[Rfam]
The record is a 156-nucleotide RNA sequence from Allobosea sp. Leaf344, which matches "ALIL pseudoknot" in Rfam.

RNA sequence: GGCGUAUUUUGCCCAGGCCCCUUUCGGCGAAUGUAUGCAUUCGCCUGUCGGGUGAGAGGAGCUCGACCGCCCGUUCAAGCGAGGAUCGCGUUCAUCGACGAUCACCGCCAGGUCCAUGGGGUCGAGCCGAUCUGCAAAGUGCUGCCGAUCGCCCCC
Numbered sequence: 001g002g003c004g005u006a007u008u009u010u011g012c013c014c015a016g017g018c019c020c021c022u023u024u025c026g027g028c029g030a031a032u033g034u035a036u037g038c039a040u041u042c043g044c045c046u047g048u049c050g051g052g053u054g055a056g057a058g059g060a061g062c063u064c065g066a067c068c069g070c071c072c073g074u075u076c077a078a079g080c081g082a083g084g085a086u087c088g089c090g091u092u093c094a095u096c097g098a099c100g101a102u103c104a105c106c107g108c109c110a111g112g113u114c115c116a117u118g119g120g121g122u123c124g125a126g127c128c129g130a131u132c133u134g135c136a137a138a139g140u141g142c143u144g145c146c147g148a149u150c151g152c153c154c155c156c
Base pairs, nucleotide, nucleotide: 016071017070018069118155119154120153121152128151129150131148132147134145135144136143